About this RNA
The record is a 180-nucleotide sequence from Hymenochirus boettgeri, which matches "Small nucleolar RNA SNORA23" in Rfam. Pairs were carried over by alignment from the consensus structure, which was predicted with RNAalifold. The family has 9 seed sequences and 1,092 matches in Rfam 15.1. The organism belongs to Hymenochirus, within Eukaryota.

RNA sequence: GUAGGACAGUGUGCACAGUGUCAGUCUGUGUCUGUGGUGCAGCCAGCUUGUGUUCUGCAUGUUGGCAGCUCCGUACACACUCAGCCUACAGCCAGAAAUGAACAUGAGAUCAUAGUACUGGUCUAGUGAUGUCAUUCAGACACUUCCACCACUGGCCAGCCUCCAACUUCUCACACACAU
Numbered sequence: 001g002u003a004g005g006a007c008a009g010u011g012u013g014c015a016c017a018g019u020g021u022c023a024g025u026c027u028g029u030g031u032c033u034g035u036g037g038u039g040c041a042g043c044c045a046g047c048u049u050g051u052g053u054u055c056u057g058c059a060u061g062u063u064g065g066c067a068g069c070u071c072c073g074u075a076c077a078c079a080c081u082c083a084g085c086c087u088a089c090a091g092c093c094a095g096a097a098a099u100g101a102a103c104a105u106g107a108g109a110u111c112a113u114a115g116u117a118c119u120g121g122u123c124u125a126g127u128g129a130u131g132u133c134a135u136u137c138a139g140a141c142a143c144u145u146c147c148a149c150c151a152c153u154g155g156c157c158a159g160c161c162u163c164c165a166a167c168u169u170c171u172c173a174c175a176c177a178c179a180u
Stems, first nucleotide, its partner, number of pairs: 013089001015087001030080002033077002035073003039069002042066005049059003105173005118159006125153004130142004